[Rfam]
RNA sequence: UUGACAGAAGAGAGUGAGCACACAGAAGCACUUGGUAUAGUUAUAUACUGUUGCUUUUGCGUGCUCACUUCUCUUUCUGUCAA
Numbered sequence: 001u002u003g004a005c006a007g008a009a010g011a012g013a014g015u016g017a018g019c020a021c022a023c024a025g026a027a028g029c030a031c032u033u034g035g036u037a038u039a040g041u042u043a044u045a046u047a048c049u050g051u052u053g054c055u056u057u058u059g060c061g062u063g064c065u066c067a068c069u070u071c072u073c074u075u076u077c078u079g080u081c082a083a
Stems, first nucleotide, its partner, number of pairs: 001083009010073003013069009023059003
The family of this 83-nucleotide sequence from Glycine max is "mir-156 microRNA precursor family". The family's consensus secondary structure was predicted with PFOLD. It scores 75 bits against the family's covariance model. The family has 10 seed sequences and 1,401 matches in Rfam 15.1. Rfam's curators write: This family represents the plant microRNA (miRNA) precursor mir-156. The organism belongs to Glycine subgen. Soja, within Eukaryota. Rfam links the family to the GO terms RISC complex and miRNA-mediated post-transcriptional gene silencing.